RNA sequence: CAUAGACAGCAUAAAAACACAGUCCCGGUUGGUAGUCCGGGCGCACUAUGAAAGAGUGUCAGUAUCCUUCCCCUCCUUGGGAUGUCCAUCGCUGUCGUUACGUUU
Numbered sequence: 001c002a003u004a005g006a007c008a009g010c011a012u013a014a015a016a017a018c019a020c021a022g023u024c025c026c027g028g029u030u031g032g033u034a035g036u037c038c039g040g041g042c043g044c045a046c047u048a049u050g051a052a053a054g055a056g057u058g059u060c061a062g063u064a065u066c067c068u069u070c071c072c073c074u075c076c077u078u079g080g081g082a083u084g085u086c087c088a089u090c091g092c093u094g095u096c097g098u099u100a101c102g103u104u105u
Stems, first nucleotide, its partner, number of pairs: 005096006022042002025040004043059005069082004

azaaromatic riboswitch aptamer (yjdF RNA): a 105-nucleotide RNA sequence from Aeribacillus pallidus. Pairs were carried over by alignment from the consensus structure, which is taken from published work. It scores 78 bits against the family's covariance model. NCBI's taxonomy places the organism under Bacteria, Bacillati, Bacillota, Bacilli, Aeribacillus.